[Rfam]
RNA sequence: AAGAGAGCUAUCCGUCGACAGUAUAAUUUUUAACUACACUGUCAUGGAGUUGCUCUCUUUAU
Numbered sequence: 001a002a003g004a005g006a007g008c009u010a011u012c013c014g015u016c017g018a019c020a021g022u023a024u025a026a027u028u029u030u031u032a033a034c035u036a037c038a039c040u041g042u043c044a045u046g047g048a049g050u051u052g053c054u055c056u057c058u059u060u061a062u
Base pairs, nucleotide, nucleotide: 001059002058003057004056006054007053008052011048012047013046014045017043018042019041021039022038

Notes: The family of this 62-nucleotide RNA sequence from Acyrthosiphon pisum is "mir-46/mir-47/mir-281 microRNA precursor family". Gene Ontology terms of the family: miRNA-mediated post-transcriptional gene silencing and RISC complex. Rfam's curators put it in the seed alignment. The base pairs follow the family's consensus structure, which was predicted with RNAalifold. A reference for the family is Lau et al. (2001), "An abundant class of tiny RNAs with probable regulatory roles in Caenorhabditis elegans", Science. The family has 57 seed sequences and 307 matches in Rfam 15.1.